[Rfam]
RNA sequence: UCGGCCCCGGUUCACGGUGGACAAGCCCGUCCUCCGACCCGGUGCC
Numbered sequence: 001u002c003g004g005c006c007c008c009g010g011u012u013c014a015c016g017g018u019g020g021a022c023a024a025g026c027c028c029g030u031c032c033u034c035c036g037a038c039c040c041g042g043u044g045c046c
Stems, first nucleotide, its partner, number of pairs: 003046003007042004015036003019032004

Rfam assigns this 46-nucleotide RNA sequence from Streptomyces abyssalis to the family "L31-Actinobacteria ribosomal protein leader".
For this family Rfam cites "Discovery of 20 novel ribosomal leader candidates in bacteria and archaea" (Eckert and Weinberg, BMC Microbiol, 2020).
Lineage of the source: Bacteria > Bacillati > Actinomycetota > Kitasatosporales > Streptomyces.
By type it is a cis-regulatory leader.
The match comes from Rfam's covariance-model search (45 bits).
The family's consensus secondary structure is taken from published work.